[Rfam]
RNA sequence: GGAAUCCCGUAUGGUAAAGCUUAACCAGCAGCCAUUAGCGAGUCUUGAGUUGGUUGGGGCGACCCAAAGGGCUAAGCGUAGAUAGUAAACAUGUGGGCCAUAAGCCGAAUGAGGUUGAAGCUGAAAGCUCCGAAAUCCCAAACGAUAAGGUCGAUAUGUUGGUCUGUAUAGAAGACAGUACUAAAUUAUUCAACAUGGUGAGAAUGGUUUAGCUUAUCCGGAGUCGUGGGGCA
Number, nucleotide and partner (000 for none) at each position: 001g000002g000003a000004a000005u000006c000007c000008c000009g000010u000011a035012u034013g033014g032015u000016a000017a000018a000019g029020c028021u027022u201023a000024a199025c198026c000027a021028g020029c019030a000031g000032c014033c013034a012035u011036u000037a000038g086039c085040g000041a000042g083043u082044c081045u080046u078047g077048a073049g072050u071051u070052g000053g000054u067055u066056g065057g064058g063059g000060c000061g000062a000063c058064c057065c056066a055067a054068a000069g000070g051071g050072c049073u048074a000075a000076g000077c047078g046079u000080a045081g044082a043083u042084a000085g039086u038087a000088a000089a000090c000091a000092u000093g000094u000095g000096g000097g000098c000099c000100a000101u000102a000103a000104g000105c000106c000107g000108a000109a000110u000111g000112a000113g000114g000115u000116u000117g000118a000119a000120g000121c000122u000123g000124a227125a000126a000127g224128c223129u222130c221131c220132g219133a000134a000135a000136u000137c000138c000139c000140a000141a000142a000143c000144g218145a217146u216147a215148a214149g213150g176151u175152c174153g000154a000155u170156a169157u168158g167159u000160u000161g000162g000163u000164c000165u000166g000167u158168a157169u156170a155171g000172a000173a000174g152175a151176c150177a000178g000179u000180a000181c212182u211183a210184a209185a208186u207187u206188a205189u204190u203191c202192a000193a000194c000195a000196u000197g000198g025199u024200g000201a022202g191203a190204a189205u188206g187207g186208u185209u184210u183211a182212g181213c149214u148215u147216a146217u145218c144219c132220g131221g130222a129223g128224u127225c000226g000227u124228g000229g000230g000231g000232c000233a000
This 233-nucleotide RNA sequence from Clostridium grantii belongs to the Rfam family "Group II catalytic intron D1-D4-6".
Pairs were carried over by alignment from the consensus structure.
From the family's description: Group II introns are found in rRNA, tRNA and mRNA of organelles in fungi, plants and protists, and also in mRNA in bacteria.
Taxonomically the source falls in Clostridium grantii (Bacteria, Clostridia, Eubacteriales, Clostridium).
Rfam links the family to the GO term Group II intron splicing.